[Rfam]
RNA sequence: AGCGGGUAGAUCAUGGUCACAGUAGGAGCGUUCUUGUUGCGACCCCUGUCACAUUUUAUAUAAAUCUGCGAUCCUGCU
Numbered sequence: 001a002g003c004g005g006g007u008a009g010a011u012c013a014u015g016g017u018c019a020c021a022g023u024a025g026g027a028g029c030g031u032u033c034u035u036g037u038u039g040c041g042a043c044c045c046c047u048g049u050c051a052c053a054u055u056u057u058a059u060a061u062a063a064a065u066c067u068g069c070g071a072u073c074c075u076g077c078u
Stems, first nucleotide, its partner, number of pairs: 015044004021078007028040003050068002053065004
The record is a 78-nucleotide RNA from Polypterus senegalus, which matches "Mammalian CPEB3 ribozyme" in Rfam.
The family's consensus secondary structure is taken from published work.
Gene Ontology term of the family: RNA nuclease activity.
Taxonomically the source falls in Polypterus (Eukaryota, Eumetazoa, Actinopterygii, Polypteridae).